[Rfam]
This 404-nucleotide part of an RNA from Protostrongylus rufescens belongs to the Rfam family "Eukaryotic large subunit ribosomal RNA". It is one of the family's seed sequences.
RNA sequence: GACAUAUUGUUGCGAUAGUAAUCCUGCUUAGUACGAGAGGAACAGCAGGUUCAGACAUUUGGUUCAUGGACUUGACCGAUCGGUCAAUGGUCCGAAGCUAACAUCUGGGGGAUUAUGACUGAACGCCUCUAAGUCAGAAUCCCACCUAGUCAAGGUAACGAUAACUUUGUUUCCCGGUGUCGGGAGGCAACUAUAUCUCAUACCACAUGAGAGCUUAUGCCCCAGUGUAUGGCCUUGCCGGUAUGGAUAAUCCCUGCUGGUUGCCAAAGCCAGAACACUCUGGUUCAAUGUCGGGGCGCAAAAUCACAUGUAUACGACAUGUAUGCUGGUCAAGGUGUUGUAUCCAGUAGAGCAGUGUUUGUAUACUGCGAUCUGUUGAGACUAUCCUCUGAUCGGGUGUUUUG
Number, nucleotide and partner (000 for none) at each position: 001g000002a000003c000004a000005u000006a162007u161008u160009g159010u158011u157012g156013c155014g000015a000016u148017a147018g146019u000020a000021a051022u000023c049024c048025u047026g046027c045028u044029u000030a000031g000032u000033a000034c000035g000036a000037g000038a000039g000040g000041a000042a000043c000044a028045g027046c026047a025048g024049g023050u000051u021052c107053a106054g105055a104056c000057a000058u000059u000060u100061g099062g098063u000064u000065c000066a000067u094068g093069g092070a091071c090072u087073u086074g085075a084076c083077c082078g000079a000080u000081c000082g077083g076084u075085c074086a073087a072088u000089g000090g071091u070092c069093c068094g067095a000096a000097g000098c062099u061100a060101a000102c000103a000104u055105c054106u053107g052108g000109g143110g142111g141112a000113u000114u000115a000116u136117g135118a134119c133120u132121g000122a000123a000124c000125g000126c000127c000128u000129c000130u000131a000132a120133g119134u118135c117136a116137g000138a000139a000140u000141c111142c110143c109144a000145c000146c018147u017148a016149g000150u000151c000152a000153a000154g000155g013156u012157a011158a010159c009160g008161a007162u006163a000164a000165c000166u000167u000168u000169g000170u000171u000172u296173c295174c294175c293176g292177g291178u000179g000180u000181c000182g000183g000184g000185a000186g000187g000188c000189a000190a000191c000192u000193a000194u000195a000196u000197c000198u000199c000200a000201u000202a000203c000204c000205a000206c000207a000208u000209g000210a000211g000212a000213g000214c000215u000216u000217a000218u000219g000220c000221c000222c000223c000224a000225g000226u000227g000228u000229a000230u000231g000232g000233c000234c000235u000236u000237g000238c000239c000240g000241g000242u000243a000244u000245g000246g000247a000248u000249a000250a000251u000252c000253c000254c000255u000256g000257c000258u000259g000260g000261u000262u000263g000264c000265c000266a000267a000268a000269g000270c000271c000272a000273g000274a000275a000276c000277a000278c000279u000280c000281u000282g000283g000284u000285u000286c000287a000288a000289u000290g000291u177292c176293g175294g174295g173296g172297c000298g000299c000300a000301a403302a402303a401304u000305c399306a322307c321308a320309u319310g318311u000312a000313u000314a000315c000316g000317a000318c310319a309320u308321g307322u306323a000324u000325g000326c000327u395328g394329g393330u392331c391332a390333a388334g387335g386336u000337g382338u381339u000340g000341u000342a000343u000344c000345c375346a374347g373348u000349a372350g000351a000352g369353c368354a367355g366356u365357g000358u000359u000360u000361g000362u000363a000364u000365a356366c355367u354368g353369c352370g000371a000372u349373c347374u346375g345376u000377u000378g000379a000380g000381a338382c337383u000384a000385u000386c335387c334388u333389c000390u332391g331392a330393u329394c328395g327396g000397g000398u000399g305400u000401u303402u302403u301404g000